[Rfam]
RNA sequence: CUUAAUUCGAUUAGGUUUAGGGUCUGAAAAAAUCAUAAAUUUUGGUGUUGUCUAUCAGCUUCAUCUCCUGUUACUGGUGAAGACUGAAGUUAAACAACAACACUACAUGU
Dot-bracket structure: ...........................................(((((((......((((((.((((...........).)))..))))))......)))))))......
This 110-nucleotide RNA sequence from Prunus yedoensis belongs to the Rfam family "Small nucleolar RNA snoR97". For this family Rfam cites "Experimental RNomics: identification of 140 candidates for small non-messenger RNAs in the plant Arabidopsis thaliana" (Marker et al., Curr Biol, 2002).